[Rfam]
RNA: Y RNA
RNA sequence: GGUUGGUCCGAGUGCAGUGGUGUUUACAAUUAAUUGGUCACAACAAGUUACAGAUUCCUUUGUUCGUUCUCCACUCCCACUUCUCCACUUGACCAGCCUUUA
Numbered sequence: 001g002g003u004u005g006g007u008c009c010g011a012g013u014g015c016a017g018u019g020g021u022g023u024u025u026a027c028a029a030u031u032a033a034u035u036g037g038u039c040a041c042a043a044c045a046a047g048u049u050a051c052a053g054a055u056u057c058c059u060u061u062g063u064u065c066g067u068u069c070u071c072c073a074c075u076c077c078c079a080c081u082u083c084u085c086c087a088c089u090u091g092a093c094c095a096g097c098c099u100u101u102a
Stems, first nucleotide, its partner, number of pairs: 001098008010090002014086001016081005022076001028064003032060002